[Rfam]
Shown here is a 112-nucleotide sequence from Pseudaminobacter soli, a member of the family "Alphaproteobacterial ar14". About the family: Smr14C2 was renamed NfeR1 (Nodule Formation Efficiency RNA) highly expressed in salt stress and during the symbiotic interaction on legume roots. It scores 70 bits against the family's covariance model.
RNA sequence: GUUUCCCGCCGCGGCCUUCCUCCUCCCAGCUGCGGCGGCACGGACCGGCAUCCCCUCCUCCCGAAGCCGGUCCACCUAUGAAGCCCGUCGGCUCAGCCGACGGGCUUUUUUU
Number, nucleotide and partner (000 for none) at each position: 001g000002u000003u000004u000005c000006c038007c037008g036009c035010c034011g033012c032013g031014g030015c029016c000017u000018u000019c000020c000021u000022c000023c000024u000025c000026c000027c000028a000029g015030c014031u013032g012033c011034g010035g009036c008037g007038g006039c000040a000041c000042g000043g072044a071045c070046c069047g068048g067049c066050a000051u064052c000053c000054c000055c000056u000057c000058c000059u000060c000061c000062c000063g000064a051065a000066g049067c048068c047069g046070g045071u044072c043073c000074a000075c000076c000077u000078a000079u000080g000081a107082a106083g105084c104085c103086c102087g101088u100089c099090g098091g097092c000093u000094c000095a000096g000097c091098c090099g089100a088101c087102g086103g085104g084105c083106u082107u081108u000109u000110u000111u000112u000

Record summary:
Lineage of the source: Bacteria > Alphaproteobacteria > Hyphomicrobiales > Phyllobacteriaceae > Pseudaminobacter.